[Rfam]
A member of the RNA family "ASpks TB sRNA" from Actinoplanes sp. N902-109, 69 nucleotides long. By type it is an antisense RNA. Lineage of the source: Bacteria > Actinomycetota > Micromonosporales > Micromonosporaceae > Actinoplanes. The base pairs follow the family's consensus structure, which is taken from published work. The literature on the family includes a 2009 paper in Mol Microbiol by Arnvig and Young, "Identification of small RNAs in Mycobacterium tuberculosis".
RNA sequence: CUUCACCGACCCCAGCCACAGCGGGGCCGGCCGGUUCUGCCCGUACGUGGCCAGCAGCGCCUGCGCCUC
Numbered sequence: 001c002u003u004c005a006c007c008g009a010c011c012c013c014a015g016c017c018a019c020a021g022c023g024g025g026g027c028c029g030g031c032c033g034g035u036u037c038u039g040c041c042c043g044u045a046c047g048u049g050g051c052c053a054g055c056a057g058c059g060c061c062u063g064c065g066c067c068u069c
Stems, first nucleotide, its partner, number of pairs: 016024002030064002032059002037054003041050003